[Rfam]
This 89-nucleotide RNA from Papaver somniferum belongs to the Rfam family "Small nucleolar RNA R11/Z151". The match comes from Rfam's covariance-model search (51 bits). Gene Ontology terms of the family: RNA processing and nucleolus. Lineage of the source: Eukaryota > Streptophytina > Embryophyta > Mesangiospermae > Papaver. By type it is a C/D-box small nucleolar RNA. For this family Rfam cites "Identification of 66 box C/D snoRNAs in Arabidopsis thaliana: extensive gene duplications generated multiple isoforms predicting new ribosomal RNA 2'-O-methylation sites" (Barneche et al., J Mol Biol, 2001). Pairs were carried over by alignment from the consensus structure, which was predicted with PFOLD.
RNA sequence: GGGUUGAUAAUGAUAAAUUUUUAUAUCUUAGUGGAUUUCAGUGAGUAUUUUAUCAAUUAUCUGAAUGUCACACACUUGAGCUGAAAUCU
Numbered sequence: 001g002g003g004u005u006g007a008u009a010a011u012g013a014u015a016a017a018u019u020u021u022u023a024u025a026u027c028u029u030a031g032u033g034g035a036u037u038u039c040a041g042u043g044a045g046u047a048u049u050u051u052a053u054c055a056a057u058u059a060u061c062u063g064a065a066u067g068u069c070a071c072a073c074a075c076u077u078g079a080g081c082u083g084a085a086a087u088c089u
Stems, first nucleotide, its partner, number of pairs: 001089005
Dot-bracket structure: (((((...............................................................................)))))